[Rfam]
RNA: Archaeal RNase P
Organism: Halopelagius inordinatus
RNA sequence: GGCAGAGAGAGCCCGGUUCCCGUGCCCCGCAUCCGCGAGGCAUGAGGAAAGUCCCCCCACCGUCCGGACAGGUGACCGGGCGCAAGCCCGGAGUCGGAGACGGCUGGCUCUGAAACAGAAACGAGACCCCUCGACCCGACCGAUGAUGCGUGCGAACCGACCCGUAAGGGAAGGGAGUUAACCCGCAGAGGGAUGCGCGGUCACUUCGUGGCCGCGCGCGGACGGUCGAGAACGGAUGGAACGGUGAAUCCUCACCGGUGCAAGUCCGCGCCGCCAAGGUAGUCCGGACAGCACCCUCGGGACGGCCCGAGGUGCCCCCGGAGUCGUCCGGGGAGGACGCGGACGCUUAGCCGAAUGCCGGGACGAACAGAAGGGGGCUUACUCCUCUCAGCC
Numbered sequence: 001g002g003c004a005g006a007g008a009g010a011g012c013c014c015g016g017u018u019c020c021c022g023u024g025c026c027c028c029g030c031a032u033c034c035g036c037g038a039g040g041c042a043u044g045a046g047g048a049a050a051g052u053c054c055c056c057c058c059a060c061c062g063u064c065c066g067g068a069c070a071g072g073u074g075a076c077c078g079g080g081c082g083c084a085a086g087c088c089c090g091g092a093g094u095c096g097g098a099g100a101c102g103g104c105u106g107g108c109u110c111u112g113a114a115a116c117a118g119a120a121a122c123g124a125g126a127c128c129c130c131u132c133g134a135c136c137c138g139a140c141c142g143a144u145g146a147u148g149c150g151u152g153c154g155a156a157c158c159g160a161c162c163c164g165u166a167a168g169g170g171a172a173g174g175g176a177g178u179u180a181a182c183c184c185g186c187a188g189a190g191g192g193a194u195g196c197g198c199g200g201u202c203a204c205u206u207c208g209u210g211g212c213c214g215c216g217c218g219c220g221g222a223c224g225g226u227c228g229a230g231a232a233c234g235g236a237u238g239g240a241a242c243g244g245u246g247a248a249u250c251c252u253c254a255c256c257g258g259u260g261c262a263a264g265u266c267c268g269c270g271c272c273g274c275c276a277a278g279g280u281a282g283u284c285c286g287g288a289c290a291g292c293a294c295c296c297u298c299g300g301g302a303c304g305g306c307c308c309g310a311g312g313u314g315c316c317c318c319c320g321g322a323g324u325c326g327u328c329c330g331g332g333g334a335g336g337a338c339g340c341g342g343a344c345g346c347u348u349a350g351c352c353g354a355a356u357g358c359c360g361g362g363a364c365g366a367a368c369a370g371a372a373g374g375g376g377g378c379u380u381a382c383u384c385c386u387c388u389c390a391g392c393c
Base pairs, nucleotide, nucleotide: 001393002392003391005389006388007387008386009385010383011382012362013361014360015359016358017357021044022043023042024041025040049380050379051378053377054376055375056374057373058260059259060258061257071256072255073254074253075252076091077090078089079088080087092105093104094103095102096101106251107250111247113245127235128234130230131229132228133227134226135225136224148186149185264344265343266342267341268340269339270338272336
Dot-bracket structure: (((.(((((((((((((...(((((..............)))))....[[[.[[[[[((((.........((((((((((......)))))(((((....)))))((...(.(.............((.(((((((...........((...................................)).....................................)))))))...)).........).)..)))))))))))...(((((((.(...............................................................).)))))))............))))))..........]]]]]]]].)).))))).)))